[Rfam]
RNA sequence: CUUGAUGGAGCCCAGGUACAGCGGCUCGUCCCGGCCCUGGCCGUAGGUGGCCAGCAGCGCCUGCGCCUC
Numbered sequence: 001c002u003u004g005a006u007g008g009a010g011c012c013c014a015g016g017u018a019c020a021g022c023g024g025c026u027c028g029u030c031c032c033g034g035c036c037c038u039g040g041c042c043g044u045a046g047g048u049g050g051c052c053a054g055c056a057g058c059g060c061c062u063g064c065g066c067c068u069c
Stems, first nucleotide, its partner, number of pairs: 014026002017023001032059002037054003041050003
Dot-bracket structure: .............((.(.....).)).....((...(((.(((....))).)))...))..........
Overview:
This 69-nucleotide sequence from Nocardia sp. NRRL S-836 belongs to the Rfam family "ASpks TB sRNA". By type it is an antisense RNA. NCBI's taxonomy places the organism under Bacteria, Actinomycetota, Mycobacteriales, Nocardiaceae, Nocardia.